Rfam assigns this 49-nucleotide RNA from Oxalobacteraceae bacterium CAVE-383 to the family "Guanidine-II riboswitch aptamer (mini-ykkC)". Rfam's curators write: Simpler in structure and has fewer highly conserved nucleotide positions than the ykkC-yxkD leader. Despite this each of its two stem-loop structures directly bind free guanidine. Therefore, mini-ykkC RNA motif represents a distinct class of guanidine-sensing RNAs. Its crystal structure was also determined.
[Rfam]
Nucleotides: 049
Base pairs, nucleotide, nucleotide: 001020002019003018004017005016007014008013036049037048039046040045
Number, partner (000 for none) and nucleotide at each position: 001020c002019g003018c004017c005016g006000u007014g008013g009000a010000c011000g012000a013008c014007c015000u016005c017004g018003g019002c020001g021000c022000a023000c024000a025000a026000g027000a028000g029000c030000a031000a032000c033000c034000c035000g036049g037048c038000a039046g040045g041000a042000c043000g044000g045040c046039c047000c048037g049036c